[Rfam]
Notes:
S10-Clostridia ribosomal protein leader: a 78-nucleotide RNA from Clostridium cylindrosporum. The organism belongs to Clostridium cylindrosporum, within Bacteria. By type it is a cis-regulatory leader. The base pairs follow the family's consensus structure, which is taken from published work. A search with the family's covariance model found it, with a score of 43 bits.
RNA sequence: AGGAUGCGAUGAAGCAAGAGGUUGCCACCUUAAGGGGAAUUCUUGUGGAGAAUGUCCUGAUCAAGAAUCGGGCGACAA
Numbered sequence: 001a002g003g004a005u006g007c008g009a010u011g012a013a014g015c016a017a018g019a020g021g022u023u024g025c026c027a028c029c030u031u032a033a034g035g036g037g038a039a040u041u042c043u044u045g046u047g048g049a050g051a052a053u054g055u056c057c058u059g060a061u062c063a064a065g066a067a068u069c070g071g072g073c074g075a076c077a078a
Stems, first nucleotide, its partner, number of pairs: 014046003018042003025036002029034001053077004059073001061071002